Background:
The record is a 254-nucleotide RNA sequence from Dichanthelium oligosanthes, which matches "MIR408 microRNA precursor family" in Rfam. The family has 8 seed sequences and 299 matches in Rfam 15.1. The match comes from Rfam's covariance-model search (69 bits).
[Rfam]
RNA sequence: AGGUAGGUUUGGGUUGGAGACAGGGAUGAGGCAGAGCAUGGGAUGGGGCCAUCAACAGACAAAUUCCAUUUCUUUUCCAAUUCGAAAACAUGUUUGCUUCCUUGCCUGCGAAAGUGAGGGAGGGGAGUUGUGAGAAGUGAUUUGCUCGGAGAAAAGGAGGAGAGGUUUCAGGCACCAAAGGCUGAGAGCUCCGCUGGUGUUGUUGCUCCCUCCCCUGCACUGCCUCUUCCCUGGCUCCCCAACAGCCACCGGCC
Number, nucleotide and partner (000 for none) at each position: 001a000002g000003g000004u000005a000006g000007g000008u000009u000010u000011g000012g000013g000014u000015u000016g000017g237018a236019g235020a000021c233022a232023g231024g230025g229026a228027u000028g000029a225030g224031g223032c222033a221034g220035a000036g218037c217038a216039u000040g214041g000042g213043a000044u000045g000046g208047g207048g206049c205050c000051a000052u000053c000054a000055a000056c000057a000058g000059a000060c000061a000062a000063a000064u000065u000066c000067c000068a000069u000070u000071u000072c000073u000074u000075u000076u000077c000078c000079a000080a000081u000082u000083c000084g000085a000086a000087a000088a000089c000090a000091u000092g000093u000094u000095u000096g000097c000098u000099u000100c000101c000102u000103u000104g000105c000106c000107u000108g000109c000110g000111a000112a000113a000114g000115u000116g000117a000118g000119g000120g000121a000122g000123g000124g000125g000126a000127g000128u000129u000130g000131u000132g000133a000134g000135a000136a000137g000138u000139g000140a000141u000142u000143u000144g000145c000146u000147c000148g000149g000150a000151g000152a000153a000154a000155a000156g000157g000158a000159g000160g000161a000162g000163a000164g000165g000166u000167u000168u000169c000170a000171g000172g000173c000174a000175c000176c000177a000178a000179a000180g000181g000182c000183u000184g000185a000186g000187a000188g000189c000190u000191c000192c000193g000194c000195u000196g000197g000198u000199g000200u000201u000202g000203u000204u000205g049206c048207u047208c046209c000210c000211u000212c000213c042214c040215c000216u038217g037218c036219a000220c034221u033222g032223c031224c030225u029226c000227u000228u026229c025230c024231c023232u022233g021234g000235c019236u018237c017238c000239c000240c000241a000242a000243c000244a000245g000246c000247c000248a000249c000250c000251g000252g000253c000254c000